Rfam assigns this 78-nucleotide RNA from Camphora micrantha to the family "Small nucleolar RNA Z155". Lineage of the source: Eukaryota > Embryophyta > Spermatophyta > Mesangiospermae > Camphora. On this family, see Chen et al., Nucleic Acids Res 2003: "The high diversity of snoRNAs in plants: identification and comparative study of 120 snoRNA genes from Oryza sativa".
RNA sequence: CGUUGAUGUGAUGAGAUUUCCGGUCGGAAGAUUCACAUGUGUCGACACAAAACACAGACUACAAUUAUCUGAUCAAUG
Numbered sequence: 001c002g003u004u005g006a007u008g009u010g011a012u013g014a015g016a017u018u019u020c021c022g023g024u025c026g027g028a029a030g031a032u033u034c035a036c037a038u039g040u041g042u043c044g045a046c047a048c049a050a051a052a053c054a055c056a057g058a059c060u061a062c063a064a065u066u067a068u069c070u071g072a073u074c075a076a077u078g
Base pairs, nucleotide, nucleotide: 001078002077003076004075005074006073